[Rfam]
RNA sequence: GACGCAUUCCAUUCACUACGGAUCGUCCGGCACGUACCUGCCGGUGAAGGAGAAGCAC
Number, nucleotide and partner (000 for none) at each position: 001g000002a000003c000004g000005c000006a000007u000008u000009c050010c049011a000012u048013u047014c046015a045016c000017u000018a000019c000020g000021g000022a000023u000024c000025g000026u000027c044028c043029g042030g041031c040032a039033c000034g000035u000036a000037c000038c000039u032040g031041c030042c029043g028044g027045u015046g014047a013048a012049g010050g009051a000052g000053a000054a000055g000056c000057a000058c000

This 58-nucleotide RNA sequence from Agromyces bauzanensis belongs to the Rfam family "msiK RNA". By type it is a cis-regulatory element. Taxonomically the source falls in Agromyces (Bacteria, Bacillati, Actinomycetota, Actinomycetes).